[Rfam]
RNA: SAM riboswitch aptamer (S box leader)
Organism: Mumia flava
RNA sequence: AGCUCAUCGAGAGGGGCGGAGGGAACGGCCCGACGAAGCCCCGGCAACCACCGUGCGUAGCUCGCGACCAGGCGAGGCCGACGCGCGGCAUGGUGCCAAAUCCGUCUCGCGGCGAAGGUCGUCCGCGGGAGAGAUGACAG
Numbered sequence: 001a002g003c004u005c006a007u008c009g010a011g012a013g014g015g016g017c018g019g020a021g022g023g024a025a026c027g028g029c030c031c032g033a034c035g036a037a038g039c040c041c042c043g044g045c046a047a048c049c050a051c052c053g054u055g056c057g058u059a060g061c062u063c064g065c066g067a068c069c070a071g072g073c074g075a076g077g078c079c080g081a082c083g084c085g086c087g088g089c090a091u092g093g094u095g096c097c098a099a100a101u102c103c104g105u106c107u108c109g110c111g112g113c114g115a116a117g118g119u120c121g122u123c124c125g126c127g128g129g130a131g132a133g134a135u136g137a138c139a140g
Stems, first nucleotide, its partner, number of pairs: 004137005013042005021031003025105004043097004048093002051088008101132001106129006